[Rfam]
RNA sequence: ACCAUCCUUUUCUUGGGUUUGCACUACUGUCCAAUGAGUGCAUAGUGUGGGCAGUACUGCUAAUGCCUAAACAACACACUCACAUCAACUAGAGCUCUGCUUUAUGCUGGUGCAAUUUUUGGAAAA
Numbered sequence: 001a002c003c004a005u006c007c008u009u010u011u012c013u014u015g016g017g018u019u020u021g022c023a024c025u026a027c028u029g030u031c032c033a034a035u036g037a038g039u040g041c042a043u044a045g046u047g048u049g050g051g052c053a054g055u056a057c058u059g060c061u062a063a064u065g066c067c068u069a070a071a072c073a074a075c076a077c078a079c080u081c082a083c084a085u086c087a088a089c090u091a092g093a094g095c096u097c098u099g100c101u102u103u104a105u106g107c108u109g110g111u112g113c114a115a116u117u118u119u120u121g122g123a124a125a126a
Base pairs, nucleotide, nucleotide: 007017008016009015021060022059023058026055027054028053029052030051031050032049038046039045083112084111085110086109087108090104091103092102093101094100095099
Record summary
Rfam assigns this 126-nucleotide RNA from Saimiri boliviensis to the family "U4atac minor spliceosomal RNA". From the family's description: U4atac is an essential component of the minor U12-type spliceosome complex which is required for removal of the rarer class of eukaryotic introns (AT-AC, U12-type). Its Rfam clan is "U4 clan". A search with the family's covariance model found it, with a score of 104 bits. The family's RNA type in Rfam is spliceosomal small nuclear RNA. A reference for the family is Davila Lopez et al. (2008), "Computational screen for spliceosomal RNA genes aids in defining the phylogenetic distribution of major and minor spliceosomal components", Nucleic Acids Res.